[Rfam]
RNA sequence: CUGGCGGCAGCGUUCCUGCGUCAGCGUCAGACAGAUCAGACCGCGGCCGUAUUUGGCCAUGAAGUUGAUCGCUUCCGGCGUGACAUGCUCGGCCGCCAGCACCA
Number, nucleotide and partner (000 for none) at each position: 001c000002u000003g058004g057005c056006g000007g054008c000009a000010g027011c026012g025013u024014u023015c000016c000017u000018g000019c000020g000021u000022c000023a014024g013025c012026g011027u010028c000029a000030g000031a000032c000033a000034g000035a050036u049037c000038a000039g047040a000041c045042c000043g000044c000045g041046g000047c039048c000049g036050u035051a000052u000053u000054u007055g000056g005057c004058c003059a000060u000061g000062a000063a000064g000065u000066u104067g103068a000069u101070c000071g096072c095073u000074u000075c092076c091077g090078g088079c087080g086081u000082g000083a000084c000085a000086u080087g079088c078089u000090c077091g076092g075093c000094c000095g072096c071097c000098a000099g000100c000101a069102c000103c067104a066